The record is an 86-nucleotide RNA from Ectothiorhodospiraceae bacterium 2226, which matches "Glycine riboswitch aptamer" in Rfam. The source organism's lineage runs through Bacteria, Pseudomonadati, Pseudomonadota, Chromatiales and Ectothiorhodospiraceae.
RNA sequence: AAAGCUGACUCUGGAGAGCGGUCGCCCGUCCCGGGUGAUCCACCGAAGGGGCUCAAGCUCUCAGGUGCAAGGACAGAGGGGCGGCG
Number, nucleotide and partner (000 for none) at each position: 001a000002a000003a000004g000005c000006u081007g000008a000009c078010u077011c076012u075013g074014g000015a000016g000017a000018g000019c000020g040021g039022u038023c037024g036025c035026c034027c000028g000029u000030c000031c000032c000033g000034g026035g025036u024037g023038a022039u021040c020041c000042a066043c065044c064045g062046a061047a000048g000049g060050g059051g058052c000053u000054c000055a000056a000057g000058c051059u050060c049061u046062c045063a000064g044065g043066u042067g000068c000069a000070a000071g000072g000073a000074c013075a012076g011077a010078g009079g000080g000081g006082c000083g000084g000085c000086g000